[Rfam]
RNA sequence: CACUCCCCUUUCACUUUGCCAACUGGACUUAUGUCUUUAUUGGUCAUUCAAGUGGGGCAAAGGAAAUACCCUUUUAAAACUCAAGUAAACGGGGUGUUUGUCUCGUAACCUGUCAGAGGAAACAAAC
Number, nucleotide and partner (000 for none) at each position: 001c000002a000003c000004u000005c000006c000007c000008c000009u000010u000011u000012c000013a000014c000015u000016u000017u000018g000019c000020c000021a000022a000023c000024u000025g000026g000027a000028c000029u000030u000031a000032u059033g058034u057035c056036u055037u000038u000039a000040u051041u050042g049043g048044u000045c000046a000047u000048u043049c042050a041051a040052g000053u000054g000055g036056g035057g034058c033059a032060a000061a000062g000063g000064a000065a000066a000067u000068a000069c000070c119071c118072u117073u116074u115075u000076a000077a000078a000079a000080c000081u000082c105083a103084a000085g101086u100087a099088a098089a097090c096091g000092g000093g000094g000095u000096g090097u089098u088099u087100g086101u085102c000103u083104c000105g082106u000107a000108a000109c000110c000111u000112g000113u000114c000115a074116g073117a072118g071119g070120a000121a000122a000123c000124a000125a000126a000127c000
RNA: Small nucleolar RNA SNORA27